[Rfam]
RNA sequence: CUCUGGAGAGUGCAAUUUAUGCCACCAAAGGGGACCUUCUAUUAUAGAAGGAUAAACUUUCAGGUAAAAGGACAGAG
Numbered sequence: 001c002u003c004u005g006g007a008g009a010g011u012g013c014a015a016u017u018u019a020u021g022c023c024a025c026c027a028a029a030g031g032g033g034a035c036c037u038u039c040u041a042u043u044a045u046a047g048a049a050g051g052a053u054a055a056a057c058u059u060u061c062a063g064g065u066a067a068a069a070g071g072a073c074a075g076a077g
Base pairs, nucleotide, nucleotide: 001077002076003075004074005073012022013021014020024065025064026063028060031059032058033057037052038051039050040049
Glycine riboswitch aptamer: a 77-nucleotide sequence from Oceanobacillus profundus. Taxonomically the source falls in Oceanobacillus (Bacteria, Bacillota, Bacilli, Bacillaceae). From the family's description: This family represents the bacterial glycine riboswitch. Glycine riboswitches usually consist of two metabolite-binding aptamers domains with similar structures in tandem. The aptamers cooperatively bind glycine to regulate the expression of downstream genes. It scores 33 bits against the family's covariance model.